Notes
Shown here is an 83-nucleotide RNA from Trifolium subterraneum, a member of the family "mir-156 microRNA precursor family".

RNA sequence: UUGACAGAAGAGAGUGAGCACACAGAGACACUCGCUAUAAUUCUAUACCGUGGUAUUUGUGUGCUCACUCAUCUUUCUGUCAA
Numbered sequence: 001u002u003g004a005c006a007g008a009a010g011a012g013a014g015u016g017a018g019c020a021c022a023c024a025g026a027g028a029c030a031c032u033c034g035c036u037a038u039a040a041u042u043c044u045a046u047a048c049c050g051u052g053g054u055a056u057u058u059g060u061g062u063g064c065u066c067a068c069u070c071a072u073c074u075u076u077c078u079g080u081c082a083a
Base pairs, nucleotide, nucleotide: 001083002082003081004080005079006078007077008076009075010073011072012070013069014068015067016066017065018064019063020062021061023059024058025057
Rfam describes the family as follows. This family represents the plant microRNA (miRNA) precursor mir-156. Rfam links the family to the GO terms miRNA-mediated post-transcriptional gene silencing and RISC complex. Taxonomically the source falls in Trifolium (Eukaryota, Viridiplantae, Pentapetalae, Papilionoideae). The family's consensus secondary structure was predicted with PFOLD.